raiA RNA: a 226-nucleotide RNA sequence from a Clostridiales bacterium.
[Rfam]
RNA sequence: UUCACUCGGGUCUGUGGUUGCGGGCGCGCAAGCGCCUUAGUCCAAGGUAGGCGCGGCCGAAAGGACCCACGUAAGCCGGAAGCCAAGCUUCCGGACGAGCAUGGCGCGCCUUAGGGGUAAGCCGUACCGCCUUGCUUUCUCGGGCGAGAGGGCUAGUAGUGAGAUGACAUCAAGCGACCGCUCCAGUACGCGGGUGUGGGGUCAAAGACCAGGUCAGCCGAGUGAA
Numbered sequence: 001u002u003c004a005c006u007c008g009g010g011u012c013u014g015u016g017g018u019u020g021c022g023g024g025c026g027c028g029c030a031a032g033c034g035c036c037u038u039a040g041u042c043c044a045a046g047g048u049a050g051g052c053g054c055g056g057c058c059g060a061a062a063g064g065a066c067c068c069a070c071g072u073a074a075g076c077c078g079g080a081a082g083c084c085a086a087g088c089u090u091c092c093g094g095a096c097g098a099g100c101a102u103g104g105c106g107c108g109c110c111u112u113a114g115g116g117g118u119a120a121g122c123c124g125u126a127c128c129g130c131c132u133u134g135c136u137u138u139c140u141c142g143g144g145c146g147a148g149a150g151g152g153c154u155a156g157u158a159g160u161g162a163g164a165u166g167a168c169a170u171c172a173a174g175c176g177a178c179c180g181c182u183c184c185a186g187u188a189c190g191c192g193g194g195u196g197u198g199g200g201g202u203c204a205a206a207g208a209c210c211a212g213g214u215c216a217g218c219c220g221a222g223u224g225a226a
Stems, first nucleotide, its partner, number of pairs: 001226009012217003015211005044197001046195001047057001049111007066104002076094007102204001123190005128146005150183004159175002
The family's RNA type in Rfam is riboswitch.